[Rfam]
Nucleotides: 071
Stems, first nucleotide, its partner, number of pairs: 001070007010024004026042004047063003051059001
Number, partner (000 for none) and nucleotide at each position: 001070g002069c003068c004067c005066g006065g007064u008000u009000a010024g011023c012022a013021u014000a015000a016000a017000a018000g019000u020000a021013a022012u023011g024010c025000a026042a027041c028040c029039g030000u031000u032000u033000u034000g035000u036000a037000c038000u039029c040028g041027g042026u043000u044000g045000a046000a047063g048062u049061a050000a051059g052000u053000g054000c055000g056000a057000u058000a059051c060000c061049u062048a063047c064007a065006c066005u067004g068003g069002g070001c071000u